This 77-nucleotide sequence from Homo sapiens belongs to the Rfam family "mir-3121 microRNA precursor family". The sequence is in the family's curated seed alignment. The organism belongs to Homo, within Eukaryota.
Nucleotides: 077
Base pairs, nucleotide, nucleotide: 001077002076003075004074005073010068011067012066013065014064015063016062017061018060019059020058021057022056023055024054025053026052027051028050029049030048031047032046033045034042035041036040
Number, partner (000 for none) and nucleotide at each position: 001077a002076a003075a004074u005073g006000g007000u008000u009000a010068u011067g012066u013065c014064c015063u016062u017061u018060g019059c020058c021057u022056a023055u024054u025053c026052u027051a028050u029049u030048u031047a032046a033045g034042a035041c036040a037000c038000c039000c040036u041035g042034u043000a044000c045033c046032u047031u048030a049029a050028a051027u052026a053025g054024a055023g056022u057021a058020g059019g060018c061017a062016a063015a064014g065013g066012a067011c068010a069000g070000a071000a072000a073005c074004a075003u076002u077001u